[Rfam]
RNA sequence: GCGGUGGCUCCAAAGUGCUGUUCGUGCAGGUAGUGUGUGCAGCCAUCUACUGCCGGGCAGCACUUCCCGAGCCCCCGC
Numbered sequence: 001g002c003g004g005u006g007g008c009u010c011c012a013a014a015g016u017g018c019u020g021u022u023c024g025u026g027c028a029g030g031u032a033g034u035g036u037g038u039g040c041a042g043c044c045a046u047c048u049a050c051u052g053c054c055g056g057g058c059a060g061c062a063c064u065u066c067c068c069g070a071g072c073c074c075c076c077g078c
Base pairs, nucleotide, nucleotide: 004075006073007072009070010069013065014064015063016062017061018060019059020058021057022056023055026053027052029051030050031049032048033047
RNA: mir-17 microRNA precursor family